[Rfam]
RNA sequence: CUCUAAUAUUAUUCUAGAUUAUAUAUUUUAAGGAAUAUGUACAAUGAAAUAUUAGAUAUUAAAGGAACUUGUUCCUUCCUAAUUUAGGUAAAAAUGAAACAGUAAAAUACAUAUUAGUAGAGUAAUUAGAAAAUAUGUAUUUUAC
Numbered sequence: 001c002u003c004u005a006a007u008a009u010u011a012u013u014c015u016a017g018a019u020u021a022u023a024u025a026u027u028u029u030a031a032g033g034a035a036u037a038u039g040u041a042c043a044a045u046g047a048a049a050u051a052u053u054a055g056a057u058a059u060u061a062a063a064g065g066a067a068c069u070u071g072u073u074c075c076u077u078c079c080u081a082a083u084u085u086a087g088g089u090a091a092a093a094a095u096g097a098a099a100c101a102g103u104a105a106a107a108u109a110c111a112u113a114u115u116a117g118u119a120g121a122g123u124a125a126u127u128a129g130a131a132a133a134u135a136u137g138u139a140u141u142u143u144a145c
Base pairs, nucleotide, nucleotide: 003055004054005053006052007051008050009049013047014046020041021040022039023038024037025036026035027034028033078088079087080086081085102145103144104143105142106141107140108139109138110137111136112135113134114133120127121126
A member of the RNA family "RT-14 RNA", 145 nucleotides long.